[Rfam]
RNA: SmY spliceosomal RNA
RNA sequence: CAAUGACUACCAAAACAUUGCGGGCCUUUCAUAAGACCCAGUAGAUCAAUUUUUGAAAUCUCGGUUAGAAAUCGAGAA
Numbered sequence: 001c002a003a004u005g006a007c008u009a010c011c012a013a014a015a016c017a018u019u020g021c022g023g024g025c026c027u028u029u030c031a032u033a034a035g036a037c038c039c040a041g042u043a044g045a046u047c048a049a050u051u052u053u054u055g056a057a058a059u060c061u062c063g064g065u066u067a068g069a070a071a072u073c074g075a076g077a078a
Stems, first nucleotide, its partner, number of pairs: 022039003026035003059077008